The family of this 97-nucleotide sequence from Pseudomonas sp. MRSN 12121 is "t44 RNA". On this family, see Tjaden et al., Nucleic Acids Res 2002: "Transcriptome analysis of Escherichia coli using high-density oligonucleotide probe arrays". Rfam describes the family as follows. This family consists of a number of bacterial RNA genes of between 135 and 170 bases in length. Rfam classes the family as a small RNA.
[Rfam]
Nucleotides: 097
Stems, first nucleotide, its partner, number of pairs: 023087008035078008048069003
Number, partner (000 for none) and nucleotide at each position: 001000c002000c003000c004000c005000g006000a007000a008000a009000a010000g011000c012000c013000u014000a015000a016000a017000c018000c019000c020000a021000c022000a023087c024086a025085c026084g027083u028082g029081u030080c031000g032000a033000c034000a035078c036077g037076a038075u039074g040073a041072c042071c043000u044000g045000g046000g047000u048069g049068c050067c051000c052000u053000c054000a055000g056000c057000a058000c059000a060000u061000g062000c063000u064000g065000u066000u067050g068049g069048u070000u071042g072041g073040u074039c075038a076037u077036u078035g079000g080030g081029a082028u083027a084026c085025g086024u087023g088000g089000a090000g091000g092000c093000c094000u095000a096000a097000c